Rfam assigns this 187-nucleotide sequence from Myotis myotis to the family "U2 spliceosomal RNA". The source organism's lineage runs through Eukaryota, Eumetazoa, Deuterostomia, Amniota and Myotis.
RNA sequence: CUCGCUUCUCGGCCUUUUGGCUAAGAUCAAGUGCAAUGUCUGUUCUUAGUUUAAUAUCUGUUGCAUCCUCUUUCUGAGGACAUUAUAUGAAAUGUAUUUUUGGAAUAGGGAGAUGGAAUCGGAGCUUGCUCCGUCCACUCCACGCAUCGACCCGUAUUGCACUACCUCCAGAAACGGUGCACCAAAC
Numbered sequence: 001c002u003c004g005c006u007u008c009u010c011g012g013c014c015u016u017u018u019g020g021c022u023a024a025g026a027u028c029a030a031g032u033g034c035a036a037u038g039u040c041u042g043u044u045c046u047u048a049g050u051u052u053a054a055u056a057u058c059u060g061u062u063g064c065a066u067c068c069u070c071u072u073u074c075u076g077a078g079g080a081c082a083u084u085a086u087a088u089g090a091a092a093u094g095u096a097u098u099u100u101u102g103g104a105a106u107a108g109g110g111a112g113a114u115g116g117a118a119u120c121g122g123a124g125c126u127u128g129c130u131c132c133g134u135c136c137a138c139u140c141c142a143c144g145c146a147u148c149g150a151c152c153c154g155u156a157u158u159g160c161a162c163u164a165c166c167u168c169c170a171g172a173a174a175c176g177g178u179g180c181a182c183c184a185a186a187c
Base pairs, nucleotide, nucleotide: 007026008025009024011022012021013020014019047060048059049058066080067079068078069077070076109141110140111139112138115135116134121132122131123130124129144180145179146178147177148176149175152171154169156167
The literature on the family includes a 1997 paper in Nucleic Acids Res by Zwieb, "The uRNA database". The family's RNA type in Rfam is spliceosomal small nuclear RNA.